[Rfam]
RNA sequence: GCGCCUCUGGCUUCGCUCACUCGGCUGCCACGUGGCAGCCGGGUGAGGGCCUCAGGGCGGCGC
Numbered sequence: 001g002c003g004c005c006u007c008u009g010g011c012u013u014c015g016c017u018c019a020c021u022c023g024g025c026u027g028c029c030a031c032g033u034g035g036c037a038g039c040c041g042g043g044u045g046a047g048g049g050c051c052u053c054a055g056g057g058c059g060g061c062g063c
Stems, first nucleotide, its partner, number of pairs: 001061002005057004015050004020043006028035002
RNA: MIR2907 microRNA precursor family
Organism: Oryza meridionalis